[Rfam]
L31-Firmicutes ribosomal protein leader: a 32-nucleotide sequence.
The literature on the family includes a 2020 paper in BMC Microbiol by Eckert and Weinberg, "Discovery of 20 novel ribosomal leader candidates in bacteria and archaea".
The family is grouped with related families in Rfam's "Ribosomal Protein L31 Leader clan".
By type it is a cis-regulatory leader.
RNA sequence: CUCUGUUUCUAAAGGAUUCAGGGCAGAAAGAG
Numbered sequence: 001c002u003c004u005g006u007u008u009c010u011a012a013a014g015g016a017u018u019c020a021g022g023g024c025a026g027a028a029a030g031a032g
Base pairs, nucleotide, nucleotide: 001023002022003021004020005019008016009015010014